[Rfam]
A member of the RNA family "Bacterial RNase P class A" from Pseudoclavibacter chungangensis, 353 nucleotides long. Taxonomically the source falls in Pseudoclavibacter (Bacteria, Actinomycetota, Actinomycetes, Microbacteriaceae). The base pairs follow the family's consensus structure, which is taken from published work. The match comes from Rfam's covariance-model search (280 bits).

RNA sequence: CGGGCCGGCCAGACGGUCGCGUCAUCCGGCAACGGAUGCCGAGGAACGUCCGGGCUCCACAGGGCAGGACGGUGGGUAACACCCACCCGGGGCAACCCGCGAGACAGUGCCACAGAAAACAGACCGCCCCCUCGGGGGUCAGGGUGAAAAGGUGGGGUAAGAGCCCACCGGGUGCCUGGUGACAGGCAUCGCACGGUAAACCUCGUCCGGAGCAAGGUCAGACAGGGGACGGUGACGCUGCCCGCCGAGUCCCCGGGUGGACCGCUGGAGGCGUGCGGCGACGUACGCCCGAGAGAGAUGGCCGUCACGGGCUUCGGCCCGGACAGAACCCGGCGUACCGGCCGACCCGUUCG
Numbered sequence: 001c002g003g004g005c006c007g008g009c010c011a012g013a014c015g016g017u018c019g020c021g022u023c024a025u026c027c028g029g030c031a032a033c034g035g036a037u038g039c040c041g042a043g044g045a046a047c048g049u050c051c052g053g054g055c056u057c058c059a060c061a062g063g064g065c066a067g068g069a070c071g072g073u074g075g076g077u078a079a080c081a082c083c084c085a086c087c088c089g090g091g092g093c094a095a096c097c098c099g100c101g102a103g104a105c106a107g108u109g110c111c112a113c114a115g116a117a118a119a120c121a122g123a124c125c126g127c128c129c130c131c132u133c134g135g136g137g138g139u140c141a142g143g144g145u146g147a148a149a150a151g152g153u154g155g156g157g158u159a160a161g162a163g164c165c166c167a168c169c170g171g172g173u174g175c176c177u178g179g180u181g182a183c184a185g186g187c188a189u190c191g192c193a194c195g196g197u198a199a200a201c202c203u204c205g206u207c208c209g210g211a212g213c214a215a216g217g218u219c220a221g222a223c224a225g226g227g228g229a230c231g232g233u234g235a236c237g238c239u240g241c242c243c244g245c246c247g248a249g250u251c252c253c254c255g256g257g258u259g260g261a262c263c264g265c266u267g268g269a270g271g272c273g274u275g276c277g278g279c280g281a282c283g284u285a286c287g288c289c290c291g292a293g294a295g296a297g298a299u300g301g302c303c304g305u306c307a308c309g310g311g312c313u314u315c316g317g318c319c320c321g322g323a324c325a326g327a328a329c330c331c332g333g334c335g336u337a338c339c340g341g342c343c344g345a346c347c348c349g350u351u352c353g
Stems, first nucleotide, its partner, number of pairs: 001349004006344005012306007020041002023038006046336003050333005055212004062243004067208005072086005087101001088099004102203002107201002109197003124143002126139005151169006170192001171190008216263004225254006237245002270289008